Shown here is a 59-nucleotide RNA sequence from Bifidobacterium goeldii, a member of the family "msiK RNA". The base pairs follow the family's consensus structure, which is taken from published work. It is annotated as a cis-regulatory element.
RNA sequence: AGGAAAAUCCCUUUACCACGGAUCGUGAGGCACGUACCUGCCUCUGAAAGGAUGAACUA
Numbered sequence: 001a002g003g004a005a006a007a008u009c010c011c012u013u014u015a016c017c018a019c020g021g022a023u024c025g026u027g028a029g030g031c032a033c034g035u036a037c038c039u040g041c042c043u044c045u046g047a048a049a050g051g052a053u054g055a056a057c058u059a
Stems, first nucleotide, its partner, number of pairs: 009051002012048004027044006
Dot-bracket structure: ........((.((((...........((((((......)))))))))).))........